[Rfam]
RNA sequence: AUGACGAAUUUGGGAGAGACUGCAAAUAGCAGCGCCGAAGGUGAAACCGCAACAAACUCUCAGGCAAAAGGACCGAAUUCUGACG
Numbered sequence: 001a002u003g004a005c006g007a008a009u010u011u012g013g014g015a016g017a018g019a020c021u022g023c024a025a026a027u028a029g030c031a032g033c034g035c036c037g038a039a040g041g042u043g044a045a046a047c048c049g050c051a052a053c054a055a056a057c058u059c060u061c062a063g064g065c066a067a068a069a070g071g072a073c074c075g076a077a078u079u080c081u082g083a084c085g
Stems, first nucleotide, its partner, number of pairs: 006080008020032004034065003037061002041059001043057001